[Rfam]
A member of the RNA family "SAM riboswitch aptamer (S box leader)" from Piscibacillus halophilus, 114 nucleotides long. Rfam's curators write: The SAM riboswitch is found upstream of a number of genes which code for proteins involved in methionine or cysteine biosynthesis in Gram-positive bacteria.
RNA sequence: UUCUUAUCCCGAGAGGUGGAGGGACUGGCCCUAAGAAACCUCGGCAGCGGAUCUGAUUCGAUCAGAUACUGUGCCAAUUCCAGCAAGCACUUAUAAGUGUUUGAAAGAUAAGAA
Number, nucleotide and partner (000 for none) at each position: 001u114002u113003c112004u111005u110006a109007u108008c107009c000010c000011g000012a000013g042014a041015g040016g039017u038018g000019g000020a000021g031022g030023g029024a000025c083026u082027g081028g080029c023030c022031c021032u000033a000034a000035g000036a000037a000038a017039c016040c015041u014042c013043g075044g074045c073046a072047g000048c071049g070050g000051a067052u066053c065054u064055g000056a000057u000058u000059c000060g000061a000062u000063c000064a054065g053066a052067u051068a000069c000070u049071g048072u046073g045074c044075c043076a000077a000078u000079u106080c028081c027082a026083g025084c103085a102086a101087g100088c099089a098090c000091u000092u000093a000094u000095a000096a000097g000098u089099g088100u087101u086102u085103g084104a000105a000106a079107g008108a007109u006110a005111a004112g003113a002114a001